RNA: nhaA-I RNA
RNA sequence: GGGUGGCCGGCUCCUUUUCACUGGGGACGGGCAGGUUUUCACGCUGGUCGGGCCGCCAGCG
Numbered sequence: 001g002g003g004u005g006g007c008c009g010g011c012u013c014c015u016u017u018u019c020a021c022u023g024g025g026g027a028c029g030g031g032c033a034g035g036u037u038u039u040c041a042c043g044c045u046g047g048u049c050g051g052g053c054c055g056c057c058a059g060c061g
Stems, first nucleotide, its partner, number of pairs: 005032001007030003011026004042061007
Dot-bracket structure: ....(.(((.((((........)))).))).).........(((((((......)))))))